Shown here is a 365-nucleotide sequence from Bacteroides sp. CAG:530, a member of the family "Bacterial RNase P class A".
RNA sequence: GCAGUUGGUCGGUUUGUCGCUGGUACCUUUACGGUAAAAGAGGAAAGUCCGGGCAACGCAGAGCAUCCUACUUCCUAACAGAAAGCUAACCGCGAGGAUAGAGUAAUGCAGAAGAAAAUAACCGCCCUCCCUACCCAGGGAGAGCAAGGGUGAGAAGGUGGGGUAAGAGCCUACCAGACAUAUAGCGAUAUAUGUGCUGUGCAUCUUAGGAGUUGUAAGGUCAUGUAAACCGGCAUUAACGAGGGUUGCUCGCCCCACGUCGGAGGGUAGACCGCUAGAGCCUGUCGGUGACGGCAGGAUUAGAUAAAUGACAGACGUCUUAUUUAUAUAAGAAACAGAACCCGGCUUACAGACCAACUGCUUUU
Numbered sequence: 001g002c003a004g005u006u007g008g009u010c011g012g013u014u015u016g017u018c019g020c021u022g023g024u025a026c027c028u029u030u031a032c033g034g035u036a037a038a039a040g041a042g043g044a045a046a047g048u049c050c051g052g053g054c055a056a057c058g059c060a061g062a063g064c065a066u067c068c069u070a071c072u073u074c075c076u077a078a079c080a081g082a083a084a085g086c087u088a089a090c091c092g093c094g095a096g097g098a099u100a101g102a103g104u105a106a107u108g109c110a111g112a113a114g115a116a117a118a119u120a121a122c123c124g125c126c127c128u129c130c131c132u133a134c135c136c137a138g139g140g141a142g143a144g145c146a147a148g149g150g151u152g153a154g155a156a157g158g159u160g161g162g163g164u165a166a167g168a169g170c171c172u173a174c175c176a177g178a179c180a181u182a183u184a185g186c187g188a189u190a191u192a193u194g195u196g197c198u199g200u201g202c203a204u205c206u207u208a209g210g211a212g213u214u215g216u217a218a219g220g221u222c223a224u225g226u227a228a229a230c231c232g233g234c235a236u237u238a239a240c241g242a243g244g245g246u247u248g249c250u251c252g253c254c255c256c257a258c259g260u261c262g263g264a265g266g267g268u269a270g271a272c273c274g275c276u277a278g279a280g281c282c283u284g285u286c287g288g289u290g291a292c293g294g295c296a297g298g299a300u301u302a303g304a305u306a307a308a309u310g311a312c313a314g315a316c317g318u319c320u321u322a323u324u325u326a327u328a329u330a331a332g333a334a335a336c337a338g339a340a341c342c343c344g345g346c347u348u349a350c351a352g353a354c355c356a357a358c359u360g361c362u363u364u365u
Stems, first nucleotide, its partner, number of pairs: 001361010011350001012316007020040002024036004045348003049345005054215004061251004066211005071085003075081001086101001088099001090097002102206002106204005122149002124145002127142006157175006177197001178195007219273004230263005243255004281298007
Pairs were carried over by alignment from the consensus structure, which is taken from published work.
The match comes from Rfam's covariance-model search (234 bits).